This 200-nucleotide RNA sequence from Gossypium gossypioides belongs to the Rfam family "small nucleolar RNA snoR127".
Lineage of the source: Eukaryota > Magnoliopsida > Pentapetalae > Malvales > Gossypium.

[Rfam]
RNA sequence: CUGGAAUGAUGCUUCAUUAGCCAAAUCAGACUUUUUGAUGUGCUCCAUAAGGCAUCAGCUUCAAAGCUAUUUUCUUGAUGUGUUUUUUAUAAGCGCAACAGUUACCUCUUAGUAACUCUAAUCUAGCUUUGUAUGGGAGGCCUUUUGUUGUAGUGCAUUCUCUGACGAUACCUUCGGGAUUGGUUGCUUGUCUGACCAGA
Numbered sequence: 001c002u003g004g005a006a007u008g009a010u011g012c013u014u015c016a017u018u019a020g021c022c023a024a025a026u027c028a029g030a031c032u033u034u035u036u037g038a039u040g041u042g043c044u045c046c047a048u049a050a051g052g053c054a055u056c057a058g059c060u061u062c063a064a065a066g067c068u069a070u071u072u073u074c075u076u077g078a079u080g081u082g083u084u085u086u087u088u089a090u091a092a093g094c095g096c097a098a099c100a101g102u103u104a105c106c107u108c109u110u111a112g113u114a115a116c117u118c119u120a121a122u123c124u125a126g127c128u129u130u131g132u133a134u135g136g137g138a139g140g141c142c143u144u145u146u147g148u149u150g151u152a153g154u155g156c157a158u159u160c161u162c163u164g165a166c167g168a169u170a171c172c173u174u175c176g177g178g179a180u181u182g183g184u185u186g187c188u189u190g191u192c193u194g195a196c197c198a199g200a
Stems, first nucleotide, its partner, number of pairs: 001199004
The family's RNA type in Rfam is C/D-box small nucleolar RNA. Rfam links the family to the GO terms RNA processing and nucleolus.